[Rfam]
RNA sequence: CAGGAAGGGCUGGUUUCUCCAGUAAUUUGUAUCUCUAUCACAGCAUCAAUUACUGUUGAUGUCAGCCCCUUUCUGG
Numbered sequence: 001c002a003g004g005a006a007g008g009g010c011u012g013g014u015u016u017c018u019c020c021a022g023u024a025a026u027u028u029g030u031a032u033c034u035c036u037a038u039c040a041c042a043g044c045a046u047c048a049a050u051u052a053c054u055g056u057u058g059a060u061g062u063c064a065g066c067c068c069c070u071u072u073c074u075g076g
Stems, first nucleotide, its partner, number of pairs: 001075009010065004016059002020055008028045003
The family of this 76-nucleotide sequence from Lytechinus variegatus is "mir-2010 microRNA precursor family". The organism belongs to Lytechinus, within Eukaryota. Rfam links the family to the GO terms RISC complex and miRNA-mediated post-transcriptional gene silencing.